Rfam assigns this 75-nucleotide sequence from Sphingomonas koreensis to the family "chrB-a RNA". It scores 76 bits against the family's covariance model.
RNA sequence: GCAAUGGGGGCGGCGAUCCCCCCAUGAGGCGUCAGCCGAAGUGUCGCGUCCGCAACGUUCGAAGGACGCACCAUG
Numbered sequence: 001g002c003a004a005u006g007g008g009g010g011c012g013g014c015g016a017u018c019c020c021c022c023c024a025u026g027a028g029g030c031g032u033c034a035g036c037c038g039a040a041g042u043g044u045c046g047c048g049u050c051c052g053c054a055a056c057g058u059u060c061g062a063a064g065g066a067c068g069c070a071c072c073a074u075g
Base pairs, nucleotide, nucleotide: 005024006023007022008021009020010019046069047068048067049066050065051064